A member of the RNA family "Small nucleolar RNA U3" from Bagarius yarrelli, 213 nucleotides long. Gene Ontology terms of the family: RNA processing and nucleolus. The base pairs follow the family's consensus structure, which is taken from published work. Rfam 15.1 lists 19,072 matches to the family in 1,215 species. Small nucleolar RNAs (snoRNAs) are involved in the processing and modification of rRNA in the nucleolus. There are two main classes of snoRNAs: the box C/D class, and the box H/ACA class. U3 snoRNA is a member of the box C/D class. Indeed, the box C/D element is a subset of the six short sequence elements found in all U3 snoRNAs, namely boxes A, A', B, C, C', and D. The U3 snoRNA secondary structure is characterised by a small 5' domain (with boxes A and A'), and a larger 3' domain (with boxes B, C, C', and D), the two domains being linked by a single-stranded hinge. The organism belongs to Bagarius, within Eukaryota.
[Rfam]
RNA sequence: AAGACUGUACUUUCAGGAAUCAUUUCUAUAGUGUUUAACUAGGAAAUGUGAUUUGAAAGUGUUGUGUCUCUCUAAUCACAAUGAUGAGUUAUGAUGUACUUUUCUGAACAGAAAUCUGGUUUUAGUGCAGAAUUUUCUGCUGUGCUUUAAUCAUUGAUGAAUGUUCUUUACUUCUUAUGAAGAUUCAGAAGAAAAGUACAUGAACAGAGUGAU
Numbered sequence: 001a002a003g004a005c006u007g008u009a010c011u012u013u014c015a016g017g018a019a020u021c022a023u024u025u026c027u028a029u030a031g032u033g034u035u036u037a038a039c040u041a042g043g044a045a046a047u048g049u050g051a052u053u054u055g056a057a058a059g060u061g062u063u064g065u066g067u068c069u070c071u072c073u074a075a076u077c078a079c080a081a082u083g084a085u086g087a088g089u090u091a092u093g094a095u096g097u098a099c100u101u102u103u104c105u106g107a108a109c110a111g112a113a114a115u116c117u118g119g120u121u122u123u124a125g126u127g128c129a130g131a132a133u134u135u136u137c138u139g140c141u142g143u144g145c146u147u148u149a150a151u152c153a154u155u156g157a158u159g160a161a162u163g164u165u166c167u168u169u170a171c172u173u174c175u176u177a178u179g180a181a182g183a184u185u186c187a188g189a190a191g192a193a194a195a196g197u198a199c200a201u202g203a204a205c206a207g208a209g210u211g212a213u
Stems, first nucleotide, its partner, number of pairs: 002040002007034005015027004048065003054061001075213005094201012108164003118152004124146002127140005167187001171182004